RNA sequence: UCUUCAUUUUACGUGCUCUCUCGCCGGUCAGAGAAGCGAGAGAGUGUGUGGAAUGAAGAGA
Numbered sequence: 001u002c003u004u005c006a007u008u009u010u011a012c013g014u015g016c017u018c019u020c021u022c023g024c025c026g027g028u029c030a031g032a033g034a035a036g037c038g039a040g041a042g043a044g045u046g047u048g049u050g051g052a053a054u055g056a057a058g059a060g061a
Stems, first nucleotide, its partner, number of pairs: 001059007010050001012048006019041004
RNA: mir-8364 microRNA precursor family